[Rfam]
The record is a 244-nucleotide sequence from Halicephalobus sp. NKZ332, which matches "RNase MRP" in Rfam. NCBI's taxonomy places the organism under Eukaryota, Eumetazoa, Chromadorea, Panagrolaimidae, Halicephalobus. Its Rfam clan is "RNaseP clan". Rfam's curators write: RNase MRP is an enzymatically active ribonucleoprotein with two distinct roles in eukaryotes. In mitochondria it plays a direct role in the initiation of mitochondrial DNA replication. In the nucleus it is involved in precursor rRNA processing, where it cleaves the internal transcribed spacer 1 between 18S and 5.8S rRNAs. Despite distinct functions, RNase MRP has been shown to be evolutionarily related to RNase P. Like eukaryotic RNase P, RNase MRP is not catalytically active without associated protein subunits.

RNA sequence: GAGGUGAUUACGCGAAAAGUAUUCGGGGUUCCAAACCGGCACCUGUUGCCGACUCCGCCCUGGGGAAAGUCCCUGGACCACUGACUGCAAGAGUCUGCACUCGAGAAGUGCACAGUCAUCGUGGCUUCUGGAGCAAAGGAUCCAUGAAGACUUCUCGUCCGAGUGAUGUUCCGGAAAUCCGUUGAUGUUCGUCCCAGAGCUAGUAACACUUUGUAGACAGAAUAGGGCUUACGCGUGAGCACCU
Number, nucleotide and partner (000 for none) at each position: 001g000002a244003g243004g242005u241006g240007a000008u238009u237010a236011c235012g000013c000014g000015a000016a212017a211018a210019g209020u208021a000022u000023u063024c062025g061026g060027g059028g058029u057030u000031c000032c000033a000034a000035a000036c000037c051038g050039g049040c048041a047042c000043c000044u000045g000046u000047u041048g040049c039050c038051g037052a000053c000054u000055c000056c000057g029058c028059c027060c026061u025062g024063g023064g000065g000066a000067a230068a229069g228070u000071c227072c226073c225074u224075g000076g000077a000078c000079c000080a000081c000082u000083g095084a094085c093086u092087g000088c000089a000090a000091g000092a086093g085094u084095c083096u112097g111098c110099a109100c108101u000102c000103g000104a000105g000106a000107a000108g100109u099110g098111c097112a096113c000114a000115g186116u185117c184118a000119u000120c000121g182122u181123g180124g179125c000126u177127u175128c174129u173130g172131g000132a000133g000134c000135a000136a000137a000138g000139g000140a000141u000142c163143c000144a000145u000146g000147a000148a000149g159150a158151c157152u000153u000154c000155u000156c000157g151158u150159c149160c000161g000162a000163g142164u000165g000166a000167u000168g000169u000170u000171c000172c130173g129174g128175a127176a000177a126178u000179c124180c123181g122182u121183u000184g117185a116186u115187g000188u000189u000190c000191g000192u000193c000194c000195c000196a000197g000198a000199g000200c000201u000202a000203g000204u000205a000206a000207c000208a020209c019210u018211u017212u016213g000214u000215a000216g000217a000218c000219a000220g000221a000222a000223u000224a074225g073226g072227g071228c069229u068230u067231a000232c000233g000234c000235g011236u010237g009238a008239g000240c006241a005242c004243c003244u002